UnaL2 LINE 3' element: a 54-nucleotide RNA sequence from Triplophysa tibetana.
The organism belongs to Triplophysa, within Eukaryota.
The eel long interspersed element (LINE) UnaL2 and its partner short interspersed element (SINE) share a conserved 3' tail containing a stem-loop that is critical for their retrotransposition.
The match comes from Rfam's covariance-model search (58 bits).
The base pairs follow the family's consensus structure, which is taken from published work.
The literature on the family includes a 2004 paper in RNA by Baba et al., "Solution structure of an RNA stem-loop derived from the 3' conserved region of eel LINE UnaL2".

[Rfam]
RNA sequence: AGGAUAAAGCUUUGUAAAUCGCUUUGGAUAAAAGCGUCUGCCAAAUGCCUAACC
Numbered sequence: 001a002g003g004a005u006a007a008a009g010c011u012u013u014g015u016a017a018a019u020c021g022c023u024u025u026g027g028a029u030a031a032a033a034g035c036g037u038c039u040g041c042c043a044a045a046u047g048c049c050u051a052a053c054c
Stems, first nucleotide, its partner, number of pairs: 013043001014041003020036006